MIR7486 microRNA precursor family: an 87-nucleotide sequence from Gossypium hirsutum. Lineage of the source: Eukaryota > Tracheophyta > Mesangiospermae > Pentapetalae > Gossypium. It is one of the family's seed sequences. The base pairs follow the family's consensus structure, which was predicted with RNAalifold.
RNA sequence: CUCAAGGAAGCGCUUUGUCCACGUGGACAGAAAUUGUAUCCUUGAGGGCGCACUUUCUGUCCACGUGGACAAAGCGCUCCCUUGAGA
Numbered sequence: 001c002u003c004a005a006g007g008a009a010g011c012g013c014u015u016u017g018u019c020c021a022c023g024u025g026g027a028c029a030g031a032a033a034u035u036g037u038a039u040c041c042u043u044g045a046g047g048g049c050g051c052a053c054u055u056u057c058u059g060u061c062c063a064c065g066u067g068g069a070c071a072a073a074g075c076g077c078u079c080c081c082u083u084g085a086g087a
Stems, first nucleotide, its partner, number of pairs: 001086007009078013023064011035052003040047002